[Rfam]
RNA: TD-1 RNA
Nucleotides: 140
Base pairs, nucleotide, nucleotide: 014044015043016042017041018040019039020038021037057086058085060083061082062081063080064079091134092133093132094131095130096129097128098127099126101125102124105120106119107118108117109116110115
Number, partner (000 for none) and nucleotide at each position: 001000a002000a003000a004000a005000c006000a007000c008000u009000a010000g011000c012000c013000c014044g015043a016042g017041u018040u019039u020038g021037c022000u023000u024000a025000a026000a027000a028000a029000g030000c031000u032000a033000u034000u035000u036000u037021g038020c039019a040018a041017a042016c043015u044014c045000g046000c047000a048000u049000u050000a051000u052000u053000g054000u055000a056000u057086g058085c059000c060083g061082u062081u063080u064079c065000u066000c067000a068000g069000c070000g071000u072000u073000g074000c075000u076000u077000a078000c079064g080063a081062a082061a083060c084000u085058g086057c087000g088000g089000a090000a091134a092133a093132u094131a095130a096129a097128c098127a099126a100000u101125g102124c103000u104000c105120g106119a107118a108117a109116a110115u111000c112000g113000a114000u115110a116109u117108u118107u119106u120105c121000u122000g123000c124102g125101c126099u127098u128097g129096u130095u131094u132093a133092u134091u135000u136000u137000a138000u139000a140000g